[Rfam]
RNA sequence: AUCGCUUCUCGGCCUAUCGGCUAAGAUCAAAGUGUAGUAUCUGUUCUUAUCAGCUUAACAUCUGGUACACCCCUCAUCGAGGGGUUCUAAUGUUAAACUAAUUUUUUAUUAAUAGGCGGAGAGUUUGGGGCUUGCUCCUACUCCGUCGCGGGUUGUCCCGGUUUAGCACCACCACCGGGAACGGCCUAAUAUCU
Numbered sequence: 001a002u003c004g005c006u007u008c009u010c011g012g013c014c015u016a017u018c019g020g021c022u023a024a025g026a027u028c029a030a031a032g033u034g035u036a037g038u039a040u041c042u043g044u045u046c047u048u049a050u051c052a053g054c055u056u057a058a059c060a061u062c063u064g065g066u067a068c069a070c071c072c073c074u075c076a077u078c079g080a081g082g083g084g085u086u087c088u089a090a091u092g093u094u095a096a097a098c099u100a101a102u103u104u105u106u107u108a109u110u111a112a113u114a115g116g117c118g119g120a121g122a123g124u125u126u127g128g129g130g131c132u133u134g135c136u137c138c139u140a141c142u143c144c145g146u147c148g149c150g151g152g153u154u155g156u157c158c159c160g161g162u163u164u165a166g167c168a169c170c171a172c173c174a175c176c177g178g179g180a181a182c183g184g185c186c187u188a189a190u191a192u193c194u
Base pairs, nucleotide, nucleotide: 007026008025009024011022012021013020014019048067049066050065051064052063053062069085070084071083072082073081074080075079115147116146117145118144119143120142121141127138128137129136130135150187151186152185153184154183155182157179158178159177160176161175162174

U2 spliceosomal RNA: a 194-nucleotide RNA sequence from Cinara cedri. The match comes from Rfam's covariance-model search (168 bits). Lineage of the source: Eukaryota > Bilateria > Pancrustacea > Neoptera > Cinara. Rfam classes the family as a spliceosomal small nuclear RNA. U2 is a small nuclear RNA (snRNA) component of the spliceosome (involved in pre-mRNA splicing).